[Rfam]
RNA: Small nucleolar RNA SNORA47
RNA sequence: UGGAGGACUGAGAAGGUUAAGCAGCUCCUGAAAUGCUGCUCUAACUGGUUAUAACCUCCGACAGUAGAAGGCGAUGCAUCCGCUGAGAAUCGCUCUGCUGUGUGCACGAGCGACGUGAUGCUUGUGGACAAAUG
Number, nucleotide and partner (000 for none) at each position: 001u000002g059003g058004a057005g056006g055007a000008c000009u000010g000011a000012g000013a000014a000015g046016g045017u044018u043019a000020a040021g039022c038023a037024g036025c035026u000027c000028c000029u000030g000031a000032a000033a000034u000035g025036c024037u023038g022039c021040u020041c000042u000043a018044a017045c016046u015047g000048g000049u000050u000051a000052u000053a000054a000055c006056c005057u004058c003059c002060g000061a000062c000063a000064g000065u000066a000067g000068a000069a000070g000071g000072c000073g000074a000075u000076g000077c000078a000079u000080c000081c126082g125083c124084u000085g000086a122087g121088a000089a119090u118091c117092g000093c000094u000095c000096u000097g111098c110099u109100g000101u108102g107103u000104g000105c000106a000107c102108g101109a099110g098111c097112g000113a000114c000115g000116u000117g091118a090119u089120g000121c087122u086123u000124g083125u082126g081127g000128a000129c000130a000131a000132a000133u000134g000